RNA sequence: CUGCAAAUAUUCUCACUGUUCUGAUUUUGUGAUAAUCAGGGCAGGCUAAACAUUCACUAUAUUAAGACCAUGCAUGUGUACCCACACCUAGUUCUUUCCAUAGGCCUGGUUUUCUAAAUGCUGAUGAUAAAA
Dot-bracket structure: ..(............(((((((((((.......)))))))))))............).........(.((.((........(((..((((..........))))..)))..........)))).).......
Numbered sequence: 001c002u003g004c005a006a007a008u009a010u011u012c013u014c015a016c017u018g019u020u021c022u023g024a025u026u027u028u029g030u031g032a033u034a035a036u037c038a039g040g041g042c043a044g045g046c047u048a049a050a051c052a053u054u055c056a057c058u059a060u061a062u063u064a065a066g067a068c069c070a071u072g073c074a075u076g077u078g079u080a081c082c083c084a085c086a087c088c089u090a091g092u093u094c095u096u097u098c099c100a101u102a103g104g105c106c107u108g109g110u111u112u113u114c115u116a117a118a119u120g121c122u123g124a125u126g127a128u129a130a131a132a
Stems, first nucleotide, its partner, number of pairs: 003057001016044011067125001069123002072121002082109003087104004
The family of this 132-nucleotide RNA sequence from Myotis davidii is "Small nucleolar RNA SNORA72". Rfam's curators write: U72 is a member of the H/ACA class of snoRNAs. A reference for the family is Ganot et al. (1997), "The family of box ACA small nucleolar RNAs is defined by an evolutionarily conserved secondary structure and ubiquitous sequence elements essential for RNA accumulation", Genes Dev. A search with the family's covariance model found it, with a score of 132 bits. Gene Ontology terms of the family: RNA processing and nucleolus.